Annotation: The record is a 393-nucleotide RNA sequence from alpha proteobacterium U9-1i, which matches "Bacterial RNase P class A" in Rfam. The source organism's lineage runs through Bacteria, Pseudomonadati, Pseudomonadota and Alphaproteobacteria. On this family, see Brown, Nucleic Acids Res 1999: "The Ribonuclease P Database".

[Rfam]
RNA sequence: CCAGUCGGCCGGACGGCCGCGGGCGCAAACUCGAAAGGGUGCGUUCGAGGAAAGUCCGGGCUCCACGCGGAUGCGACGGCGGGUAACGCCCGCCGAGAGCAAUCUUAGGGAUAGCGCCACAGAGAACAGACCGCCUGCCGGAGCCUUUGGCGAAGGUGGGUAAGGGUGAAACGGUGGGGUAAGAGCCCACCGCCGCGACCGUAAGGAAGCGGGCACGGCAAGCCCCGUCGGGAGCAAGACCGAAUAGGGACGCACGUUCUCCGCAAGGAGAACAGGUUCAUCCGCGAACCGCGUCCGGGUUGGUCGCGAGAACCGGUCAGCAAUGGCCGGUCCAGAGGAAUGGUCGUCACCUCGAAAGGGGUACAGAACCCGGCUUACAGGCCGACUGGCUCU
Numbered sequence: 001c002c003a004g005u006c007g008g009c010c011g012g013a014c015g016g017c018c019g020c021g022g023g024c025g026c027a028a029a030c031u032c033g034a035a036a037g038g039g040u041g042c043g044u045u046c047g048a049g050g051a052a053a054g055u056c057c058g059g060g061c062u063c064c065a066c067g068c069g070g071a072u073g074c075g076a077c078g079g080c081g082g083g084u085a086a087c088g089c090c091c092g093c094c095g096a097g098a099g100c101a102a103u104c105u106u107a108g109g110g111a112u113a114g115c116g117c118c119a120c121a122g123a124g125a126a127c128a129g130a131c132c133g134c135c136u137g138c139c140g141g142a143g144c145c146u147u148u149g150g151c152g153a154a155g156g157u158g159g160g161u162a163a164g165g166g167u168g169a170a171a172c173g174g175u176g177g178g179g180u181a182a183g184a185g186c187c188c189a190c191c192g193c194c195g196c197g198a199c200c201g202u203a204a205g206g207a208a209g210c211g212g213g214c215a216c217g218g219c220a221a222g223c224c225c226c227g228u229c230g231g232g233a234g235c236a237a238g239a240c241c242g243a244a245u246a247g248g249g250a251c252g253c254a255c256g257u258u259c260u261c262c263g264c265a266a267g268g269a270g271a272a273c274a275g276g277u278u279c280a281u282c283c284g285c286g287a288a289c290c291g292c293g294u295c296c297g298g299g300u301u302g303g304u305c306g307c308g309a310g311a312a313c314c315g316g317u318c319a320g321c322a323a324u325g326g327c328c329g330g331u332c333c334a335g336a337g338g339a340a341u342g343g344u345c346g347u348c349a350c351c352u353c354g355a356a357a358g359g360g361g362u363a364c365a366g367a368a369c370c371c372g373g374c375u376u377a378c379a380g381g382c383c384g385a386c387u388g389g390c391u392c393u
Stems, first nucleotide, its partner, number of pairs: 001389010011378001012348007020047008052376003056373005061234004070283001074230005079093005094108001095106004109225002114223002116219003131165002133161007173191006192214001193212004199206002238305004248296006275290005312331008